[Rfam]
RNA sequence: ACCUUGCUGACGAACUGAACGGCAUCCAGCAGCGAGAACUGGGCAGGGU
Numbered sequence: 001a002c003c004u005u006g007c008u009g010a011c012g013a014a015c016u017g018a019a020c021g022g023c024a025u026c027c028a029g030c031a032g033c034g035a036g037a038a039c040u041g042g043g044c045a046g047g048g049u
Stems, first nucleotide, its partner, number of pairs: 001049007011021002017033001023036001026042004
RNA: DUF2693-FD RNA